[Rfam]
Nucleotides: 065
Stems, first nucleotide, its partner, number of pairs: 034062003037056008
Number, partner (000 for none) and nucleotide at each position: 001000a002000a003000g004000u005000a006000u007000u008000a009000u010000a011000g012000c013000u014000c015000u016000u017000u018000c019000a020000a021000a022000a023000u024000u025000u026000g027000u028000c029000u030000a031000g032000c033000a034062g035061a036060u037056u038055u039054u040053c041052u042051g043050g044049u045000u046000u047000u048000u049044a050043c051042c052041a053040g054039a055038a056037g057000a058000c059000u060036g061035u062034c063000u064000a065000c